[Rfam]
Nucleotides: 212
Base pairs, nucleotide, nucleotide: 001135002134003133004132005131014125015124016123017122026114027113028112030111031110032109036052037051038050039049040048053096054095055094056093057092058091059090136151137150138149139148
Number, partner (000 for none) and nucleotide at each position: 001135g002134g003133u004132g005131a006000u007000a008000a009000a010000c011000g012000g013000u014125c015124g016123c017122c018000g019000c020000a021000a022000u023000a024000a025000a026114c027113c028112c029000u030111u031110c032109g033000g034000a035000c036052c037051c038050g039049g040048g041000g042000g043000c044000a045000g046000c047000a048040c049039c050038c051037g052036g053096c054095g055094c056093c057092u058091c059090c060000a061000c062000c063000a064000a065000a066000g067000c068000c069000c070000a071000u072000u073000g074000g075000a076000a077000g078000a079000u080000g081000g082000g083000u084000u085000u086000u087000g088000g089000c090059g091058g092057g093056g094055g095054c096053g097000a098000a099000a100000c101000a102000g103000g104000a105000u106000c107000g108000a109032c110031g111030g112028g113027g114026g115000c116000g117000u118000a119000a120000a121000g122017g123016g124015c125014g126000a127000g128000c129000u130000u131005u132004c133003a134002c135001c136151c137150g138149g139148c140000a141000u142000g143000g144000c145000a146000c147000c148139g149138c150137c151136g152000u153000u154000a155000u156000c157000g158000g159000g160000c161000u162000c163000a164000a165000u166000c167000u168000a169000u170000a171000g172000u173000u174000g175000c176000c177000a178000a179000c180000g181000a182000c183000a184000a185000c186000u187000a188000u189000g190000c191000u192000c193000c194000g195000g196000u197000u198000g199000c200000u201000c202000a203000g204000g205000c206000c207000g208000c209000g210000u211000g212000a

The record is a 212-nucleotide sequence from Methylopila sp. Yamaguchi, which matches "permuted transfer-messenger RNA" in Rfam.
It scores 149 bits against the family's covariance model.
Rfam classes the family as a non-coding RNA gene.